[Rfam]
RNA sequence: GACACGCUUUAACCGCCAAUUAAUGUUUGCGCGGUAACCUCUCAUUAUUCAGGUUCUUCUGAAUUUUUCAGAGUGGUUUCUCCCUCUGUUUGACGCCUCCCUGUUAACUUCGAGAGCCGUUCUUACGGCUCUUUUUUC
Numbered sequence: 001g002a003c004a005c006g007c008u009u010u011a012a013c014c015g016c017c018a019a020u021u022a023a024u025g026u027u028u029g030c031g032c033g034g035u036a037a038c039c040u041c042u043c044a045u046u047a048u049u050c051a052g053g054u055u056c057u058u059c060u061g062a063a064u065u066u067u068u069c070a071g072a073g074u075g076g077u078u079u080c081u082c083c084c085u086c087u088g089u090u091u092g093a094c095g096c097c098u099c100c101c102u103g104u105u106a107a108c109u110u111c112g113a114g115a116g117c118c119g120u121u122c123u124u125a126c127g128g129c130u131c132u133u134u135u136u137u138c
Stems, first nucleotide, its partner, number of pairs: 001043002004040001005015002021036002024033003047064006071086003075083002092105004112133009